[Rfam]
RNA sequence: UGCGCGGGCCGGGCCCCUCUGGCGCAGCGUCUUCCUUGGGAAUGCUGCGUGAUGUCGGACCGCAUCG
Numbered sequence: 001u002g003c004g005c006g007g008g009c010c011g012g013g014c015c016c017c018u019c020u021g022g023c024g025c026a027g028c029g030u031c032u033u034c035c036u037u038g039g040g041a042a043u044g045c046u047g048c049g050u051g052a053u054g055u056c057g058g059a060c061c062g063c064a065u066c067g
Stems, first nucleotide, its partner, number of pairs: 006061002009058004022050008

A member of the RNA family "terC RNA" from Novosphingobium lindaniclasticum, 67 nucleotides long.